[Rfam]
RNA: Streptomyces sRNA 4677
Organism: Streptomyces sp. SID2119
RNA sequence: CGACGCGGUGGCGAGCGACAUCAACUACUUAAAAGAACUAGAGAAAUAACCCCACCCAACCCAACCCGUCCCGCACCUGACGCACCGCGGGGGCGCGUCACCCACACGGGUGAGGUUUGCCAACUCAGCUGGAUUUCGCACCGGUUGGCAGGCAUAUGCUCACGCCACCAGACAUCAGUCGUCAGACAUACGUCGGCCCCCGACCGGGACAGCAAUCCCGUUCGAGGGCCUGACCACCAAGGAAGAAGCAACCUUCCCG
Numbered sequence: 001c002g003a004c005g006c007g008g009u010g011g012c013g014a015g016c017g018a019c020a021u022c023a024a025c026u027a028c029u030u031a032a033a034a035g036a037a038c039u040a041g042a043g044a045a046a047u048a049a050c051c052c053c054a055c056c057c058a059a060c061c062c063a064a065c066c067c068g069u070c071c072c073g074c075a076c077c078u079g080a081c082g083c084a085c086c087g088c089g090g091g092g093g094c095g096c097g098u099c100a101c102c103c104a105c106a107c108g109g110g111u112g113a114g115g116u117u118u119g120c121c122a123a124c125u126c127a128g129c130u131g132g133a134u135u136u137c138g139c140a141c142c143g144g145u146u147g148g149c150a151g152g153c154a155u156a157u158g159c160u161c162a163c164g165c166c167a168c169c170a171g172a173c174a175u176c177a178g179u180c181g182u183c184a185g186a187c188a189u190a191c192g193u194c195g196g197c198c199c200c201c202g203a204c205c206g207g208g209a210c211a212g213c214a215a216u217c218c219c220g221u222u223c224g225a226g227g228g229c230c231u232g233a234c235c236a237c238c239a240a241g242g243a244a245g246a247a248g249c250a251a252c253c254u255u256c257c258c259g
Stems, first nucleotide, its partner, number of pairs: 007238004015074003098113006128165002130162003195230005201224003206219004241257005